[Rfam]
tRNA: an 82-nucleotide RNA from Cellulomonas gilvus. About the family: Transfer RNA (tRNA) molecules are approximately 80 nucleotides in length. Clan: tRNA clan. By type it is a transfer RNA. NCBI's taxonomy places the organism under Bacteria, Bacillati, Actinomycetes, Cellulomonadaceae, Cellulomonas gilvus. It scores 57 bits against the family's covariance model.

RNA sequence: GGCGGGUUACCCGAGCGGCCAAAGGGGGCUGACUGUAAAUCAGCUGGCACAGCCUACGGGGGUUCGAAUCCCUCACCCGCCA
Dot-bracket structure: (((((((..(((...........))).(((((.......))))).............(((((.......)))))))))))).